The family of this 115-nucleotide RNA is "TPP riboswitch aptamer (THI element)".
RNA sequence: GGUCGACGCUAGGGGUGUCCAGGUUUGCCGUCAAAAAGCAUUCCUCGCGACUGAGAAUAUACUCUUAUCACCUGAUCAGGAUAAUGCCUGCGAAGGGAAGCGUCGACCAACUCCA
Numbered sequence: 001g002g003u004c005g006a007c008g009c010u011a012g013g014g015g016u017g018u019c020c021a022g023g024u025u026u027g028c029c030g031u032c033a034a035a036a037a038g039c040a041u042u043c044c045u046c047g048c049g050a051c052u053g054a055g056a057a058u059a060u061a062c063u064c065u066u067a068u069c070a071c072c073u074g075a076u077c078a079g080g081a082u083a084a085u086g087c088c089u090g091c092g093a094a095g096g097g098a099a100g101c102g103u104c105g106a107c108c109a110a111c112u113c114c115a
Base pairs, nucleotide, nucleotide: 006103007102008101009100010099011065012064013063014062016059017051018050019049071096072095073094077090078089079088080087
Rfam describes the family as follows. Vitamin B(1) in its active form thiamin pyrophosphate (TPP) is an essential coenzyme that is synthesised by coupling of pyrimidine and thiazole moieties in bacteria. Rfam links the family to the GO term thiamine pyrophosphate binding. The base pairs follow the family's consensus structure, which is taken from published work. A search with the family's covariance model found it, with a score of 60 bits.